[Rfam]
RNA: 6S / SsrS RNA
RNA sequence: UUGACCCUAGGGUGUACGUCAGUGUGUCAACGUCCCCGAGCCGAUAAGCAAAUAACCCGGAUCAGCUUUUAUUAGCUAUUGUGCAAGCUCAGCUCGACUGAGAAGCCUGCGGCUAAUGUUGCUGAACCACCUUGAACAUCUGGUUCAAGGGCCUAGAUGCGCAACGGCACCUUGGGGCAUA
Numbered sequence: 001u002u003g004a005c006c007c008u009a010g011g012g013u014g015u016a017c018g019u020c021a022g023u024g025u026g027u028c029a030a031c032g033u034c035c036c037c038g039a040g041c042c043g044a045u046a047a048g049c050a051a052a053u054a055a056c057c058c059g060g061a062u063c064a065g066c067u068u069u070u071a072u073u074a075g076c077u078a079u080u081g082u083g084c085a086a087g088c089u090c091a092g093c094u095c096g097a098c099u100g101a102g103a104a105g106c107c108u109g110c111g112g113c114u115a116a117u118g119u120u121g122c123u124g125a126a127c128c129a130c131c132u133u134g135a136a137c138a139u140c141u142g143g144u145u146c147a148a149g150g151g152c153c154u155a156g157a158u159g160c161g162c163a164a165c166g167g168c169a170c171c172u173u174g175g176g177g178c179a180u181a
Stems, first nucleotide, its partner, number of pairs: 002179002005177011017166003032152004038146005059128002063124004070118008083106002088102005